The record is a 79-nucleotide RNA from Notothenia coriiceps, which matches "mir-181 microRNA precursor family" in Rfam. Taxonomically the source falls in Notothenia (Eukaryota, Euteleostomi, Teleostei, Perciformes).
RNA sequence: GGUUCCCGGUUCACAUUCAUCGCUGUCGGUGGGUUGGUGACACUAUCAACUCGUCGAGCGGUGAAUGACAACCGUGUCC
Dot-bracket structure: ....(.((.....(((((((((...((((((.((((..........)))).)))))).))))))))).....)).)...